Makes More Granules Regulator RNA (mmgR): a 71-nucleotide sequence from Ensifer sp. M14. SuhB later renamed mmgR (makes more granules regulator) was a putative non-coding RNA found multiple times in the Agrobacterium tumefaciens genome and related alpha-proteobacteria. For this family Rfam cites "Expression of the small regulatory RNA gene mmgR is regulated negatively by AniA and positively by NtrC in Sinorhizobium meliloti 2011" (Ceizel Borella et al., Microbiology, 2018). The match comes from Rfam's covariance-model search (59 bits).
RNA sequence: UGUAAAUACCCUCCUUGGGUGUUUCCUCCCUAGACUUAACCGCGCCACCGGCGCGGUUCUUUUUGAGAUCU
Numbered sequence: 001u002g003u004a005a006a007u008a009c010c011c012u013c014c015u016u017g018g019g020u021g022u023u024u025c026c027u028c029c030c031u032a033g034a035c036u037u038a039a040c041c042g043c044g045c046c047a048c049c050g051g052c053g054c055g056g057u058u059c060u061u062u063u064u065g066a067g068a069u070c071u
Stems, first nucleotide, its partner, number of pairs: 008020004040056007